[Rfam]
RNA sequence: GAACCAAUUACAGGGGUCUCUGAACUCCAAACUUGAAAAGGAAGGGAUGGUAGGGUAGCUGCCAGUUCAUGAAUGCCCCUGGAUGCAUACAUUAGUAUGUAUUGAUAUCGGAAGCCAGGCCGAGGAUGCGUAGGCUAAGGGUUUGCAUGAACCGGGAAACGUUUUUACCUUGAUCUUUUUUGGUAUUGGAGUGAAUGGAUCUCGGUUGCUGUUUUCU
Numbered sequence: 001g002a003a004c005c006a007a008u009u010a011c012a013g014g015g016g017u018c019u020c021u022g023a024a025c026u027c028c029a030a031a032c033u034u035g036a037a038a039a040g041g042a043a044g045g046g047a048u049g050g051u052a053g054g055g056u057a058g059c060u061g062c063c064a065g066u067u068c069a070u071g072a073a074u075g076c077c078c079c080u081g082g083a084u085g086c087a088u089a090c091a092u093u094a095g096u097a098u099g100u101a102u103u104g105a106u107a108u109c110g111g112a113a114g115c116c117a118g119g120c121c122g123a124g125g126a127u128g129c130g131u132a133g134g135c136u137a138a139g140g141g142u143u144u145g146c147a148u149g150a151a152c153c154g155g156g157a158a159a160c161g162u163u164u165u166u167a168c169c170u171u172g173a174u175c176u177u178u179u180u181u182g183g184u185a186u187u188g189g190a191g192u193g194a195a196u197g198g199a200u201c202u203c204g205g206u207u208g209c210u211g212u213u214u215u216c217u
Stems, first nucleotide, its partner, number of pairs: 013203007024192006036180001060157001062155002068149004076141003